[Rfam]
RNA sequence: UUAUAGGAUGUUUUAGCUAUUGAACUGCUAUGUCCCUCUCUGUCUCUGAACAAUUUGUUUCUUGAAAGAGGAGAGGGACAAAACCGUUCAAUAGCUAAAACGUCUUAUAAC
Numbered sequence: 001u002u003a004u005a006g007g008a009u010g011u012u013u014u015a016g017c018u019a020u021u022g023a024a025c026u027g028c029u030a031u032g033u034c035c036c037u038c039u040c041u042g043u044c045u046c047u048g049a050a051c052a053a054u055u056u057g058u059u060u061c062u063u064g065a066a067a068g069a070g071g072a073g074a075g076g077g078a079c080a081a082a083a084c085c086g087u088u089c090a091a092u093a094g095c096u097a098a099a100a101c102g103u104c105u106u107a108u109a110a111c
Stems, first nucleotide, its partner, number of pairs: 001110006011100015027084001029069001031067001033065002049059004
mir-8517 microRNA precursor family: a 111-nucleotide sequence from Plutella xylostella. It scores 72 bits against the family's covariance model. Its family is annotated with RISC complex and miRNA-mediated post-transcriptional gene silencing in the Gene Ontology.